[Rfam]
RNA: c-di-AMP riboswitch aptamer (ydaO/yuaA leader)
RNA sequence: UGAGCGCGGCCGCCGAGUCCGCGAUCUGCGGAGCCGGGGACCCAAUCACUUUCGCCGGGGUGAAUCGGCGUGCCUGCUUCGGCAUGCCGUAGGGCGGCUUCCACGCCCGAACCCGUCAGCUAACCCGGUAGGCGGUAUGGAAGCGAGGA
Number, nucleotide and partner (000 for none) at each position: 001u000002g000003a000004g000005c000006g000007c000008g000009g000010c000011c134012g133013c132014c131015g000016a000017g000018u032019c031020c030021g000022c000023g000024a000025u000026c000027u000028g000029c000030g020031g019032a018033g129034c128035c127036g126037g125038g124039g000040a000041c000042c000043c057044a000045a000046u000047c000048a000049c000050u000051u000052u000053c000054g000055c000056c000057g043058g114059g113060g112061u000062g000063a000064a000065u000066c089067g088068g087069c086070g085071u084072g083073c082074c081075u000076g000077c000078u000079u000080c000081g074082g073083c072084a071085u070086g069087c068088c067089g066090u000091a000092g108093g107094g106095c105096g000097g000098c000099u000100u000101c000102c000103a000104c000105g095106c094107c093108c092109g000110a000111a000112c060113c059114c058115g000116u000117c000118a000119g000120c000121u000122a000123a000124c038125c037126c036127g035128g034129u033130a000131g014132g013133c012134g011135g000136u000137a000138u000139g000140g000141a000142a000143g000144c000145g000146a000147g000148g000149a000